RNA sequence: CGCAUCGUGGCGGGAGAGCCCGCCCGGUCCGCCGGGCGGCGCCGUAGGAGCAAGCCCCUCCCCGGGAAUCUCUCAGGCACCCGUACCGCCACGACAGG
Numbered sequence: 001c002g003c004a005u006c007g008u009g010g011c012g013g014g015a016g017a018g019c020c021c022g023c024c025c026g027g028u029c030c031g032c033c034g035g036g037c038g039g040c041g042c043c044g045u046a047g048g049a050g051c052a053a054g055c056c057c058c059u060c061c062c063c064g065g066g067a068a069u070c071u072c073u074c075a076g077g078c079a080c081c082c083g084u085a086c087c088g089c090c091a092c093g094a095c096a097g098g
Stems, first nucleotide, its partner, number of pairs: 006093008020039006041078003044074001048072003055065002
A member of the RNA family "Glycine riboswitch aptamer" from Agromyces rhizosphaerae, 98 nucleotides long. From the family's description: This family represents the bacterial glycine riboswitch.